[Rfam]
Background: The family of this 235-nucleotide RNA from Ruegeria sp. TM1040 is "permuted transfer-messenger RNA". A search with the family's covariance model found it, with a score of 141 bits. About the family: Bacterial tmRNA, also known as 10Sa RNA or SsrA, is named for its dual tRNA and mRNA-like properties. Its role is to liberate the mRNA from a stalled ribosome. To accomplish this part of the tmRNA is used as a reading frame that ends in a translation stop signal. The broken mRNA is replaced in the ribosome by the tmRNA and translation of the tmRNA leads to addition of a proteolysis tag to the incomplete protein enabling recognition by a protease. Recently a number of permuted tmRNA genes have been found encoded in two parts. tmRNAs have been identified in eubacteria and some chloroplasts but are absent from archaeal and eukaryote nuclear genomes. Rfam links the family to the GO term RNA catabolic process.

Nucleotides: 235
Base pairs, nucleotide, nucleotide: 001157002156003155004154005153013146014145015144016143025135026134029132030131031130035051036050037049038048039047052117053116054115055114056113057112058111158173159172160171
Number, partner (000 for none) and nucleotide at each position: 001157g002156g003155a004154c005153a006000u007000a008000a009000a010000c011000g012000c013146g014145c015144u016143c017000g018000u019000a020000a021000u022000a023000a024000g025135c026134g027000g028000a029132u030131c031130g032000g033000a034000c035051c036050c037049g038048g039047g040000g041000g042000c043000g044000g045000u046000a047039c048038c049037c050036g051035g052117c053116g054115g055114c056113u057112c058111c059000a060000c061000c062000a063000a064000a065000u066000c067000a068000c069000u070000u071000c072000c073000g074000g075000c076000u077000u078000u079000c080000u081000c082000c083000u084000u085000c086000g087000u088000u089000u090000g091000g092000g093000g094000a095000g096000u097000u098000u099000a100000u101000u102000c103000g104000g105000a106000a107000c108000c109000g110000g111058g112057g113056g114055g115054c116053c117052g118000a119000a120000a121000u122000a123000g124000g125000a126000u127000c128000g129000a130031c131030g132029g133000a134026c135025g136000u137000c138000u139000a140000a141000a142000g143016g144015g145014g146013u147000u148000a149000g150000c151000u152000u153005u154004g155003u156002c157001u158173c159172g160171g161000c162000u163000g164000u165000c166000u167000g168000c169000c170000a171160c172159c173158g174000u175000u176000a177000c178000c179000g180000g181000c182000g183000a184000a185000a186000a187000c188000a189000g190000u191000a192000c193000a194000a195000u196000u197000g198000c199000a200000a201000a202000c203000g204000a205000c206000a207000a208000u209000c210000g211000u212000g213000c214000u215000c216000c217000g218000g219000u220000u221000g222000c223000u224000c225000u226000g227000g228000c229000u230000g231000c232000g233000u234000a235000a